[Rfam]
RNA sequence: CUAUGGUAUUAAAUACCAUGGCGGAAGGAG
Numbered sequence: 001c002u003a004u005g006g007u008a009u010u011a012a013a014u015a016c017c018a019u020g021g022c023g024g025a026a027g028g029a030g
Stems, first nucleotide, its partner, number of pairs: 001021008